[Rfam]
RNA sequence: CUUACAGAGUUUAUUGGCAUUCUGUCCACCUCCCCUCUCUCUCAUAUGGAUAUGGGUAUGGAUAUGGAGGUGGAGGUAGGCAGACUGCCAACGGAGCUCUGUUGG
Numbered sequence: 001c002u003u004a005c006a007g008a009g010u011u012u013a014u015u016g017g018c019a020u021u022c023u024g025u026c027c028a029c030c031u032c033c034c035c036u037c038u039c040u041c042u043c044a045u046a047u048g049g050a051u052a053u054g055g056g057u058a059u060g061g062a063u064a065u066g067g068a069g070g071u072g073g074a075g076g077u078a079g080g081c082a083g084a085c086u087g088c089c090a091a092c093g094g095a096g097c098u099c100u101g102u103u104g105g
Stems, first nucleotide, its partner, number of pairs: 011095001014091006023082004028077006
The family of this 105-nucleotide sequence from Actinidia chinensis is "MIR394 microRNA precursor family". The family's consensus secondary structure was predicted with WAR. Lineage of the source: Eukaryota > Streptophytina > Embryophyta > Spermatophyta > Actinidia chinensis. Rfam links the family to the GO terms RISC complex and miRNA-mediated post-transcriptional gene silencing.